[Rfam]
RNA sequence: UACAACGCGCAGGCAGCUCUCCACCUUUCAGCUGUCUGUGACGAAAAAAAGGAGGAAAAGGUAUAGCCCGUGGCUCGGGCUGCGGCAGUGUGGAGACCUGUCGCAAUGCGGCGCAUCCCUCCGCGGAUGGCCGUGAGCGCGCAGCAAGCGGAUGCUCUGUGCGCGGAGCCGGAAAGCAUGGCG
Numbered sequence: 001u002a003c004a005a006c007g008c009g010c011a012g013g014c015a016g017c018u019c020u021c022c023a024c025c026u027u028u029c030a031g032c033u034g035u036c037u038g039u040g041a042c043g044a045a046a047a048a049a050a051g052g053a054g055g056a057a058a059a060g061g062u063a064u065a066g067c068c069c070g071u072g073g074c075u076c077g078g079g080c081u082g083c084g085g086c087a088g089u090g091u092g093g094a095g096a097c098c099u100g101u102c103g104c105a106a107u108g109c110g111g112c113g114c115a116u117c118c119c120u121c122c123g124c125g126g127a128u129g130g131c132c133g134u135g136a137g138c139g140c141g142c143a144g145c146a147a148g149c150g151g152a153u154g155c156u157c158u159g160u161g162c163g164c165g166g167a168g169c170c171g172g173a174a175a176g177c178a179u180g181g182c183g
Stems, first nucleotide, its partner, number of pairs: 008040011066080004071171006081105008090097002108134005114129003137164008147156003
A member of the RNA family "malK-I RNA", 183 nucleotides long. The base pairs follow the family's consensus structure, which is taken from published work. The sequence is in the family's curated seed alignment.